Rfam assigns this 83-nucleotide RNA sequence to the family "skipping-rope RNA". Rfam classes the family as a small RNA.

[Rfam]
RNA sequence: AAUUGUUGAGGUGAGAAAAGGCUCCUCACGCGCUAAGGCUUCUAGUAAAAAGAGAUGUAGGAUACGCCGCCCUACCAACAAUU
Numbered sequence: 001a002a003u004u005g006u007u008g009a010g011g012u013g014a015g016a017a018a019a020g021g022c023u024c025c026u027c028a029c030g031c032g033c034u035a036a037g038g039c040u041u042c043u044a045g046u047a048a049a050a051a052g053a054g055a056u057g058u059a060g061g062a063u064a065c066g067c068c069g070c071c072c073u074a075c076c077a078a079c080a081a082u083u
Base pairs, nucleotide, nucleotide: 001083002082003081004080005079006078007077008076011029012028013027014026015025020068021067022066031052032046033045034044035043057075058074059073060072061071